Shown here is a 66-nucleotide sequence from Salvator merianae, a member of the family "MAT2A 3'UTR stem loop F". Rfam classes the family as a cis-regulatory element. A reference for the family is Parker et al. (2011), "New families of human regulatory RNA structures identified by comparative analysis of vertebrate genomes", Genome Res. The source organism's lineage runs through Eukaryota, Metazoa, Eumetazoa, Gnathostomata and Salvator. The family's consensus secondary structure is taken from published work. A search with the family's covariance model found it, with a score of 61 bits.
[Rfam]
RNA sequence: UUUGGGAGAAGCUGUCCUGGCUGGUGUUGUACAGAGAAGCCAGCUUGUUUACCUGCCCAUUCCGUG
Numbered sequence: 001u002u003u004g005g006g007a008g009a010a011g012c013u014g015u016c017c018u019g020g021c022u023g024g025u026g027u028u029g030u031a032c033a034g035a036g037a038a039g040c041c042a043g044c045u046u047g048u049u050u051a052c053c054u055g056c057c058c059a060u061u062c063c064g065u066g
Stems, first nucleotide, its partner, number of pairs: 001066001003064005011056002014049001016047001019045007026032002